Source information
The record is a 55-nucleotide sequence from Solanum commersonii, which matches "MIR8008 microRNA precursor family" in Rfam. Gene Ontology terms of the family: RISC complex and miRNA-mediated post-transcriptional gene silencing. Lineage of the source: Eukaryota > Tracheophyta > Euphyllophyta > Magnoliopsida > Solanum. A search with the family's covariance model found it, with a score of 67 bits.

[Rfam]
RNA sequence: AAUACCAAAAAUGCGACGGACAGGGUCCUUUAGUCCGUCGCUUUUCUGGUAUUUU
Numbered sequence: 001a002a003u004a005c006c007a008a009a010a011a012u013g014c015g016a017c018g019g020a021c022a023g024g025g026u027c028c029u030u031u032a033g034u035c036c037g038u039c040g041c042u043u044u045u046c047u048g049g050u051a052u053u054u055u
Base pairs, nucleotide, nucleotide: 001053002052003051004050005049006048007047009045010044011043013041014040015039016038017037018036019035020034021033